[Rfam]
RNA sequence: CCUUAGACUGCUGUAGCAGCGCAUCAUGGUUUUCAGCAUUGUGCAAAAUGUGCAAACCAUAAUUUGCUGCUUUAGAGUUUUAAGG
Numbered sequence: 001c002c003u004u005a006g007a008c009u010g011c012u013g014u015a016g017c018a019g020c021g022c023a024u025c026a027u028g029g030u031u032u033u034c035a036g037c038a039u040u041g042u043g044c045a046a047a048a049u050g051u052g053c054a055a056a057c058c059a060u061a062a063u064u065u066g067c068u069g070c071u072u073u074a075g076a077g078u079u080u081u082a083a084g085g
Base pairs, nucleotide, nucleotide: 001085002084003083004082005081006080013073015071016070017069018068019067020066021065023063024062026060027059028058029057030056031055032054034052035051